A member of the RNA family "Small nucleolar RNA U54" from Papaver somniferum, 86 nucleotides long. It scores 45 bits against the family's covariance model.

[Rfam]
RNA sequence: AGCUCAAUGAUUACAUGCCCACAGGCAAUAUACACUAUUCUCAUUGGUAUAUUAUCAAAUGGAAACAUAAAAUGUAUAUGAGAGCU
Numbered sequence: 001a002g003c004u005c006a007a008u009g010a011u012u013a014c015a016u017g018c019c020c021a022c023a024g025g026c027a028a029u030a031u032a033c034a035c036u037a038u039u040c041u042c043a044u045u046g047g048u049a050u051a052u053u054a055u056c057a058a059a060u061g062g063a064a065a066c067a068u069a070a071a072a073u074g075u076a077u078a079u080g081a082g083a084g085c086u
Base pairs, nucleotide, nucleotide: 001086002085003084004083005082
From the family's description: U54 is a C/D box small nucleolar RNA, which acts as a methylation guide for 18S ribosomal RNA in plants. The family's RNA type in Rfam is C/D-box small nucleolar RNA. Its family is annotated with RNA processing and nucleolus in the Gene Ontology. Pairs were carried over by alignment from the consensus structure, which was predicted with PFOLD.